[Rfam]
RNA sequence: UUUUAUUUUUUUGGUAUGGAACACUCAUGUUAAUAAAAUGAUUUGAACUAUUU
Numbered sequence: 001u002u003u004u005a006u007u008u009u010u011u012u013g014g015u016a017u018g019g020a021a022c023a024c025u026c027a028u029g030u031u032a033a034u035a036a037a038a039u040g041a042u043u044u045g046a047a048c049u050a051u052u053u
Stems, first nucleotide, its partner, number of pairs: 011033007
RNA: Plastid-atpF group II-D1 intron